[Rfam]
RNA sequence: CCCCCGACUAAAGUCGGGGGCUAUUAUCUGUCAUCCCUACGGGAUU
Number, nucleotide and partner (000 for none) at each position: 001c020002c019003c018004c017005c016006g015007a014008c013009u000010a000011a000012a000013g008014u007015c006016g005017g004018g003019g002020g001021c000022u000023a000024u000025u000026a000027u000028c000029u000030g000031u000032c000033a045034u044035c043036c042037c041038u000039a000040c000041g037042g036043g035044a034045u033046u000